[Rfam]
RNA sequence: UGAUCCAUUCAAUUUUUUUAAUCUAGGAAAAUACGGUGGAGAGGGUUUUUCUUUUUAUUGUUUGAGAUUGAUAUCUCUCGUCUUCUCUACCGGAUUUCCUUGAUUAAAGAAAUUUACUGGUUCA
Numbered sequence: 001u002g003a004u005c006c007a008u009u010c011a012a013u014u015u016u017u018u019u020a021a022u023c024u025a026g027g028a029a030a031a032u033a034c035g036g037u038g039g040a041g042a043g044g045g046u047u048u049u050u051c052u053u054u055u056u057a058u059u060g061u062u063u064g065a066g067a068u069u070g071a072u073a074u075c076u077c078u079c080g081u082c083u084u085c086u087c088u089a090c091c092g093g094a095u096u097u098c099c100u101u102g103a104u105u106a107a108a109g110a111a112a113u114u115u116a117c118u119g120g121u122u123c124a
Base pairs, nucleotide, nucleotide: 001124002123003122005120006119007118011114012113013112016109017108018107019106020105021104022103023102025100026099027098028097029096030095032094034092035091036090037089039087040086041085
RNA: MIR1509 microRNA precursor family
Organism: Medicago truncatula